[Rfam]
RNA sequence: ACGGAACCGCCGCCUAAUCGCCGAGAGGCGAGCCGGGGACCCAUCCGGUAAUGGGGUGAAUCCAUUGAGUAAUUCAGUGGUAGGGAUCACUUCCGUCCCGAACCCGUCAGCUAACCCGACCGGCGGCCGACGGAAGGAACG
Numbered sequence: 001a002c003g004g005a006a007c008c009g010c011c012g013c014c015u016a017a018u019c020g021c022c023g024a025g026a027g028g029c030g031a032g033c034c035g036g037g038g039a040c041c042c043a044u045c046c047g048g049u050a051a052u053g054g055g056g057u058g059a060a061u062c063c064a065u066u067g068a069g070u071a072a073u074u075c076a077g078u079g080g081u082a083g084g085g086a087u088c089a090c091u092u093c094c095g096u097c098c099c100g101a102a103c104c105c106g107u108c109a110g111c112u113a114a115c116c117c118g119a120c121c122g123g124c125g126g127c128c129g130a131c132g133g134a135a136g137g138a139a140c141g
Stems, first nucleotide, its partner, number of pairs: 011125004018031003032120001034118004042053002054105003062080004083099004
Dot-bracket structure: ..........((((...(((........)))(.((((....((........))(((.....((((...........))))..((((.........))))...))).........)))).).))))................